[Rfam]
RNA sequence: AUCGUUCAUCUUUGGCAGUCGGGUGUCGUUAUAUUUGUAAUAUUCAUCUCGUAUUUCCAAGGACGGAAGUAAGGUUCAUAGCCUGAAGGAACGCAUU
Numbered sequence: 001a002u003c004g005u006u007c008a009u010c011u012u013u014g015g016c017a018g019u020c021g022g023g024u025g026u027c028g029u030u031a032u033a034u035u036u037g038u039a040a041u042a043u044u045c046a047u048c049u050c051g052u053a054u055u056u057c058c059a060a061g062g063a064c065g066g067a068a069g070u071a072a073g074g075u076u077c078a079u080a081g082c083c084u085g086a087a088g089g090a091a092c093g094c095a096u097u
Stems, first nucleotide, its partner, number of pairs: 003093005009063007066094001072084003

About this RNA: The record is a 97-nucleotide RNA sequence from Thalassoporum mexicanum, which matches "Glutamine riboswitch aptamer (glnA leader)" in Rfam. Rfam links the family to the GO term glutamine binding. The match comes from Rfam's covariance-model search (49 bits). On this family, see Ren et al., Cell Rep 2015: "Structural and Dynamic Basis for Low-Affinity, High-Selectivity Binding of L-Glutamine by the Glutamine Riboswitch".